[Rfam]
RNA sequence: GCCUUUGUAAGAACCUUUUGAAUCACUAGUUUGAUUCAAAAGGUUCUUACAAA
Numbered sequence: 001g002c003c004u005u006u007g008u009a010a011g012a013a014c015c016u017u018u019u020g021a022a023u024c025a026c027u028a029g030u031u032u033g034a035u036u037c038a039a040a041a042g043g044u045u046c047u048u049a050c051a052a053a
Stems, first nucleotide, its partner, number of pairs: 007050019
Record summary: Plastid-ccsA-ndhD-1 3UTR RNA: a 53-nucleotide sequence from Carya illinoinensis. The family is grouped with related families in Rfam's "Plastid-ccsA_ndhD 3UTR RNA clan". The base pairs follow the family's consensus structure, which was predicted with LocARNA. Rfam classes the family as a cis-regulatory element. About the family: Plastid-ccsA-ndhD-1 is a non-coding RNA (ncRNA) recognised in plastids. It was found in the three prime untranslated region (3UTR) of ccsA and ndhD genes, its 3UTR location suggests a role in transcript maturation. It scores 51 bits against the family's covariance model.